[Rfam]
RNA sequence: UAGAAAUUUGCGUGGAUCUGACUCUAGUACGAGAGGACCGAGUUGGACAAACCUCUGGUGUAUCUGUUGUUCCGCCAGGAGCAUAGCAGAGUAGCUACGUUUGGCAGGGAUAAGCGCUGAAAGCAUAUAAGCGCGAAACCCACCACAAGAUGAGAUUUCUUUAAAGGGUCGUUGAAGACGACAACGUUGAUAGGCUACAGGUGUAAAGGCAGUAAUGUCAUAGCCGAGUAGUACUAAUUACCCAAAA
Numbered sequence: 001u002a003g004a005a006a007u008u009u010g011c012g013u014g015g016a017u018c019u020g021a022c023u024c025u026a027g028u029a030c031g032a033g034a035g036g037a038c039c040g041a042g043u044u045g046g047a048c049a050a051a052c053c054u055c056u057g058g059u060g061u062a063u064c065u066g067u068u069g070u071u072c073c074g075c076c077a078g079g080a081g082c083a084u085a086g087c088a089g090a091g092u093a094g095c096u097a098c099g100u101u102u103g104g105c106a107g108g109g110a111u112a113a114g115c116g117c118u119g120a121a122a123g124c125a126u127a128u129a130a131g132c133g134c135g136a137a138a139c140c141c142a143c144c145a146c147a148a149g150a151u152g153a154g155a156u157u158u159c160u161u162u163a164a165a166g167g168g169u170c171g172u173u174g175a176a177g178a179c180g181a182c183a184a185c186g187u188u189g190a191u192a193g194g195c196u197a198c199a200g201g202u203g204u205a206a207a208g209g210c211a212g213u214a215a216u217g218u219c220a221u222a223g224c225c226g227a228g229u230a231g232u233a234c235u236a237a238u239u240a241c242c243c244a245a246a247a
Base pairs, nucleotide, nucleotide: 002160003159004158005157006156007155008154009153012146013145014144015143018046019045020044021043022042023041024040048103049102050101051100052099056097057096058095063090064089065088066087067086068083069082070081071080072079073078107141108140109139114134115133116132117131118130166243167242168241169240170186171185172184173183174182191236192235193234194232195231196230197229198228200225201224204220208219209218210217211216
Overview
The family of this 247-nucleotide part of an RNA from Psychroflexus salarius is "Bacterial large subunit ribosomal RNA". It scores 2730 bits against the family's covariance model. The base pairs follow the family's consensus structure, which is taken from published work.